[Rfam]
Nucleotides: 057
Stems, first nucleotide, its partner, number of pairs: 002013003024049011
Number, partner (000 for none) and nucleotide at each position: 001000u002013g003012g004011u005000a006000g007000a008000u009000g010000c011004a012003c013002c014000c015000u016000g017000a018000u019000u020000a021000a022000u023000u024049u025048u026047c027046c028045g029044g030043c031042u032041c033040a034039a035000a036000a037000a038000c039034u040033u041032g042031a043030g044029u045028c046027g047026g048025a049024a050000u051000u052000u053000u054000u055000u056000u057000u
The record is a 57-nucleotide RNA sequence from Leptolyngbya sp. 'hensonii', which matches "Nitrogen stress-induced RNA 1" in Rfam. The literature on the family includes a 2010 paper in J Mol Biol by Ionescu et al., "Heterocyst-specific transcription of NsiR1, a non-coding RNA encoded in a tandem array of direct repeats in cyanobacteria". Rfam 15.1 lists 962 matches to the family in 163 species. By type it is a small RNA. The organism belongs to Leptolyngbya, within Bacteria.